Overview
The family of this 91-nucleotide sequence from Streptomyces sp. SLBN-118 is "ZMP/ZTP riboswitch aptamer (pfl RNA motif)". Gene Ontology terms of the family: regulation of purine nucleotide biosynthetic process and one-carbon metabolic process. Taxonomically the source falls in Streptomyces (Bacteria, Bacillati, Actinomycetota, Actinomycetes).
[Rfam]
RNA sequence: AGUACGCACGGCGACUGGCGUACGGGGAAGUGACCCCGAGGGAACCGCGCGCGGAAGAUCACACGAGGUGCCGCCCGCCUGGGUGCCCCGG
Number, nucleotide and partner (000 for none) at each position: 001a000002g000003u053004a000005c051006g050007c049008a000009c047010g046011g045012c000013g000014a000015c041016u040017g079018g078019c077020g076021u000022a000023c000024g037025g036026g035027g034028a000029a000030g000031u000032g000033a000034c027035c026036c025037c024038g000039a000040g016041g015042g000043a000044a000045c011046c010047g009048c000049g007050c006051g005052c000053g003054g000055a000056a000057g000058a000059u000060c000061a000062c000063a000064c000065g000066a000067g000068g086069u085070g084071c083072c082073g000074c000075c000076c020077g019078c018079c017080u000081g000082g072083g071084u070085g069086c068087c000088c000089c000090g000091g000

The family's consensus secondary structure is taken from published work.